[Rfam]
RNA sequence: CACUGUUUAGGAUGAUUGUUUAAAAAGACAAUGGGAAUCUCUCUGAAAAAGAGUGAAAGACUACUUUUUGAACUGAAACGGUG
Numbered sequence: 001c002a003c004u005g006u007u008u009a010g011g012a013u014g015a016u017u018g019u020u021u022a023a024a025a026a027g028a029c030a031a032u033g034g035g036a037a038u039c040u041c042u043c044u045g046a047a048a049a050a051g052a053g054u055g056a057a058a059g060a061c062u063a064c065u066u067u068u069u070g071a072a073c074u075g076a077a078a079c080g081g082u083g
Stems, first nucleotide, its partner, number of pairs: 001083007